[Rfam]
RNA: Bacteroides sRNA BTnc231
RNA sequence: ACGUUUUUUUCAUAGAGAUUUAGAUUUAAGGUUAGAAGAAUUGUGGAAGUCGUGAGACUUCCCUUUUUUUCAUCUUAAAGUUUUGCGCUCCUGUAUCUCUCAUGGACCGUUUGAAGGUAGAUUUGCUAAAGUAUACUGAGGUUCAUGUUUUUCACGGGAGAGUGCAGAAGAGAGUCGCUUCGUGAGAAGGGGCUUUUUU
Numbered sequence: 001a002c003g004u005u006u007u008u009u010u011c012a013u014a015g016a017g018a019u020u021u022a023g024a025u026u027u028a029a030g031g032u033u034a035g036a037a038g039a040a041u042u043g044u045g046g047a048a049g050u051c052g053u054g055a056g057a058c059u060u061c062c063c064u065u066u067u068u069u070u071c072a073u074c075u076u077a078a079a080g081u082u083u084u085g086c087g088c089u090c091c092u093g094u095a096u097c098u099c100u101c102a103u104g105g106a107c108c109g110u111u112u113g114a115a116g117g118u119a120g121a122u123u124u125g126c127u128a129a130a131g132u133a134u135a136c137u138g139a140g141g142u143u144c145a146u147g148u149u150u151u152u153c154a155c156g157g158g159a160g161a162g163u164g165c166a167g168a169a170g171a172g173a174g175u176c177g178c179u180u181c182g183u184g185a186g187a188a189g190g191g192g193c194u195u196u197u198u199u
Stems, first nucleotide, its partner, number of pairs: 025079008035071006045062007083166001084164003088160007169198008178189004